About this RNA: Shown here is a 68-nucleotide RNA from Apostichopus japonicus, a member of the family "mir-33 microRNA precursor family".
RNA sequence: UGGUCGUGCAUUGUAGUUGCAUUGCAGUAAGACAUGAAACUCUGCAGUGCCACAACAGUGCAACACUG
Numbered sequence: 001u002g003g004u005c006g007u008g009c010a011u012u013g014u015a016g017u018u019g020c021a022u023u024g025c026a027g028u029a030a031g032a033c034a035u036g037a038a039a040c041u042c043u044g045c046a047g048u049g050c051c052a053c054a055a056c057a058g059u060g061c062a063a064c065a066c067u068g
Base pairs, nucleotide, nucleotide: 001068002067003066004065006064007062008061009060010059011058012057013056014055016053019050021048022047023046024045025044026043027042

The organism belongs to Apostichopus, within Eukaryota.
For this family Rfam cites "MicroRNA transcriptome in the newborn mouse ovaries determined by massive parallel sequencing" (Ahn et al., Mol Hum Reprod, 2010).